This 78-nucleotide RNA from Lactuca sativa belongs to the Rfam family "Small nucleolar RNA SNORD18".
Lineage of the source: Eukaryota > Streptophyta > Magnoliopsida > Pentapetalae > Lactuca.
Its family is annotated with RNA processing and nucleolus in the Gene Ontology.
For this family Rfam cites "Two different snoRNAs are encoded in introns of amphibian and human L1 ribosomal protein genes" (Prislei et al., Nucleic Acids Res, 1993).
The family has 16 seed sequences and 2,622 matches in Rfam 15.1.

[Rfam]
RNA sequence: GAGAUAUGAUGAUCAAUUCAUUGGUCCGUGUUUCUGAAUUUACCGUGACCGACAACUUAUUAACCAAACUCUGAUCUC
Numbered sequence: 001g002a003g004a005u006a007u008g009a010u011g012a013u014c015a016a017u018u019c020a021u022u023g024g025u026c027c028g029u030g031u032u033u034c035u036g037a038a039u040u041u042a043c044c045g046u047g048a049c050c051g052a053c054a055a056c057u058u059a060u061u062a063a064c065c066a067a068a069c070u071c072u073g074a075u076c077u078c
Base pairs, nucleotide, nucleotide: 001078002077003076004075